[Rfam]
RNA sequence: ACCGUUCAUCUCCCCUCAGUCCCAACACCAAGGCUGUUAGAGACGGAAGUAGGUGAUUAAAACCGAAGGAACGCCAU
Numbered sequence: 001a002c003c004g005u006u007c008a009u010c011u012c013c014c015c016u017c018a019g020u021c022c023c024a025a026c027a028c029c030a031a032g033g034c035u036g037u038u039a040g041a042g043a044c045g046g047a048a049g050u051a052g053g054u055g056a057u058u059a060a061a062a063c064c065g066a067a068g069g070a071a072c073g074c075c076a077u
Stems, first nucleotide, its partner, number of pairs: 003073005009043004046074001052064003
Overview:
Glutamine riboswitch aptamer (glnA leader): a 77-nucleotide sequence from Aphanothece sacrum. Pairs were carried over by alignment from the consensus structure, which is taken from published work. Rfam links the family to the GO term glutamine binding. NCBI's taxonomy places the organism under Bacteria, Cyanobacteriota, Cyanophyceae, Oscillatoriophycideae, Aphanothece sacrum.